This 148-nucleotide sequence from Papaver nudicaule belongs to the Rfam family "Small nucleolar RNA snoR2/U65". On this family, see Shaw et al., J Cell Sci 1998: "Localization and processing from a polycistronic precursor of novel snoRNAs in maize". The match comes from Rfam's covariance-model search (103 bits). The family is grouped with related families in Rfam's "SNORA65 clan". Gene Ontology terms of the family: nucleolus and RNA processing.
[Rfam]
RNA sequence: GGUCCGAGCCACGUUGAUGGUAGUCAAUAUGGCAAUGACCAUCAAUGCUAUGAUUGGACCUAUAACAAUUGUAUGUUUUGCUUUCUGAUAGGAAUCUGUUUACUGAUUCAAUAAUUCAUCUACAGAGCCGUUUUGUGUGAUUACAUUU
Numbered sequence: 001g002g003u004c005c006g007a008g009c010c011a012c013g014u015u016g017a018u019g020g021u022a023g024u025c026a027a028u029a030u031g032g033c034a035a036u037g038a039c040c041a042u043c044a045a046u047g048c049u050a051u052g053a054u055u056g057g058a059c060c061u062a063u064a065a066c067a068a069u070u071g072u073a074u075g076u077u078u079u080g081c082u083u084u085c086u087g088a089u090a091g092g093a094a095u096c097u098g099u100u101u102a103c104u105g106a107u108u109c110a111a112u113a114a115u116u117c118a119u120c121u122a123c124a125g126a127g128c129c130g131u132u133u134u135g136u137g138u139g140a141u142u143a144c145a146u147u148u
Base pairs, nucleotide, nucleotide: 002059003058004057005056006055007054008051012047013046014045015044016043017042019040020039021038023033024032025031078140079139080138081137091129092128096125097124098123102119
Background:
Pairs were carried over by alignment from the consensus structure, which was predicted with WAR.